[Rfam]
Nucleotides: 079
Stems, first nucleotide, its partner, number of pairs: 012037002017032006040073004047069002049065005
Number, partner (000 for none) and nucleotide at each position: 001000c002000u003000a004000c005000a006000u007000a008000a009000u010000g011000g012037g013036c014000a015000a016000a017032c018031u019030u020029a021028u022027u023000g024000u025000a026000a027022a028021g029020u030019a031018a032017g033000g034000a035000c036013g037012c038000a039000a040073a041072g042071c043070u044000a045000u046000a047069g048068g049065g050064c051063c052062c053061a054000g055000u056000u057000g058000g059000c060000a061053u062052g063051g064050g065049c066000a067000g068048c069047c070043a071042g072041u073040u074000g075000c076000c077000a078000u079000g
Annotation: c-di-GMP-I riboswitch aptamer: a 79-nucleotide sequence from Lachnospiraceae bacterium KH1T2.